[Rfam]
RNA sequence: AGCGUUUGCGAGGUGCCAGUGCUUUCCUCUCAUUGGGGCGAAGGAGCGAGGACAGGACCGAACAGCAGCAAACUUUUAAACUGUGAGCACAGGCCCGUCCACGGCCCGAGCUCGCCUUUCGUUUGGCUUCACCUUCUACGGAGUCCAGUCAGUUGGCCGCCUACUUCACUUUUCUUAAGAGAAAGAAGGAUGCCCGGGCCAC
Numbered sequence: 001a002g003c004g005u006u007u008g009c010g011a012g013g014u015g016c017c018a019g020u021g022c023u024u025u026c027c028u029c030u031c032a033u034u035g036g037g038g039c040g041a042a043g044g045a046g047c048g049a050g051g052a053c054a055g056g057a058c059c060g061a062a063c064a065g066c067a068g069c070a071a072a073c074u075u076u077u078a079a080a081c082u083g084u085g086a087g088c089a090c091a092g093g094c095c096c097g098u099c100c101a102c103g104g105c106c107c108g109a110g111c112u113c114g115c116c117u118u119u120c121g122u123u124u125g126g127c128u129u130c131a132c133c134u135u136c137u138a139c140g141g142a143g144u145c146c147a148g149u150c151a152g153u154u155g156g157c158c159g160c161c162u163a164c165u166u167c168a169c170u171u172u173u174c175u176u177a178a179g180a181g182a183a184a185g186a187a188g189g190a191u192g193c194c195c196g197g198g199c200c201a202c
Stems, first nucleotide, its partner, number of pairs: 002020002007015003029143003034138005040130004048123002051120001054119002073093003097115002103112002153197004158192002161189001164185003167181001169179003
This 202-nucleotide RNA from Myotis davidii belongs to the Rfam family "Connexin-43 internal ribosome entry site (IRES)".
Its family is annotated with ribosome binding in the Gene Ontology.
NCBI's taxonomy places the organism under Eukaryota, Metazoa, Euteleostomi, Amniota, Myotis.
The base pairs follow the family's consensus structure, which is taken from published work.